[Rfam]
RNA: DUF805b RNA
RNA sequence: GUUGGGGAAGCCGAAAACCAAAAGAGUAGGCA
Number, nucleotide and partner (000 for none) at each position: 001g000002u000003u020004g019005g018006g000007g000008a000009a000010g031011c030012c029013g000014a000015a000016a000017a000018c005019c004020a003021a000022a000023a000024g000025a000026g000027u000028a000029g012030g011031c010032a000